[Rfam]
RNA sequence: ACACGAGAGAGGAGGUGGUCCGCAGGUGUAUGCCCAUAGGACUCGUGAGGUGGCUGUCCGCUAGACCACUUUCUGCACAGUUGGUUGCCGGCCCAAGCGCACGGCUGACACUGGUUCGUCCAGUGCCGUAGGCGCGGGCUGAGAGGUCGGCGAAUACCAGGCAGUCACCCAGCCCUCGGAGCAUUCCCGGAACUAGUCCGACCCGGGAUCCGCGCAAGCGGAGCUCCGAGGGCUGGUCUGC
Numbered sequence: 001a002c003a004c005g006a007g008a009g010a011g012g013a014g015g016u017g018g019u020c021c022g023c024a025g026g027u028g029u030a031u032g033c034c035c036a037u038a039g040g041a042c043u044c045g046u047g048a049g050g051u052g053g054c055u056g057u058c059c060g061c062u063a064g065a066c067c068a069c070u071u072u073c074u075g076c077a078c079a080g081u082u083g084g085u086u087g088c089c090g091g092c093c094c095a096a097g098c099g100c101a102c103g104g105c106u107g108a109c110a111c112u113g114g115u116u117c118g119u120c121c122a123g124u125g126c127c128g129u130a131g132g133c134g135c136g137g138g139c140u141g142a143g144a145g146g147u148c149g150g151c152g153a154a155u156a157c158c159a160g161g162c163a164g165u166c167a168c169c170c171a172g173c174c175c176u177c178g179g180a181g182c183a184u185u186c187c188c189g190g191a192a193c194u195a196g197u198c199c200g201a202c203c204c205g206g207g208a209u210c211c212g213c214g215c216a217a218g219c220g221g222a223g224c225u226c227c228g229a230g231g232g233c234u235g236g237u238c239u240g241c
Stems, first nucleotide, its partner, number of pairs: 014058006059152004064148004069143003170235013186207005
A member of the RNA family "Actinobacteria sRNA Ms_IGR-5" from Labedaea rhizosphaerae, 241 nucleotides long. Rfam classes the family as a small RNA. Lineage of the source: Bacteria > Actinomycetes > Pseudonocardiales > Pseudonocardiaceae > Labedaea. Pairs were carried over by alignment from the consensus structure.